mir-9223 microRNA precursor family: a 76-nucleotide RNA from Eptesicus fuscus. Lineage of the source: Eukaryota > Gnathostomata > Dipnotetrapodomorpha > Chiroptera > Eptesicus. Its family is annotated with RISC complex and miRNA-mediated post-transcriptional gene silencing in the Gene Ontology.

[Rfam]
RNA sequence: GGAAGUUCUUGAGUGAUGCACCCUGGAAUCAGGCUCCCUCCUCUCUGGUUCCGGGGUGCAUCACCCAAGAACUGCC
Numbered sequence: 001g002g003a004a005g006u007u008c009u010u011g012a013g014u015g016a017u018g019c020a021c022c023c024u025g026g027a028a029u030c031a032g033g034c035u036c037c038c039u040c041c042u043c044u045c046u047g048g049u050u051c052c053g054g055g056g057u058g059c060a061u062c063a064c065c066c067a068a069g070a071a072c073u074g075c076c
Stems, first nucleotide, its partner, number of pairs: 002075001005072007013064005019058005025052009